[Rfam]
RNA sequence: AUUGGACCCGGCGUUGUCGGGUGGCGCGGCCCGGCGCCUAUCCCCGGGAUAACC
Numbered sequence: 001a002u003u004g005g006a007c008c009c010g011g012c013g014u015u016g017u018c019g020g021g022u023g024g025c026g027c028g029g030c031c032c033g034g035c036g037c038c039u040a041u042c043c044c045c046g047g048g049a050u051a052a053c054c
Stems, first nucleotide, its partner, number of pairs: 006022006030048005

A member of the RNA family "sul1 RNA" from Sphingomonas sp. TF3, 54 nucleotides long.
It scores 53 bits against the family's covariance model.
The source organism's lineage runs through Bacteria, Pseudomonadota, Sphingomonadales, Sphingomonadaceae and Sphingomonas.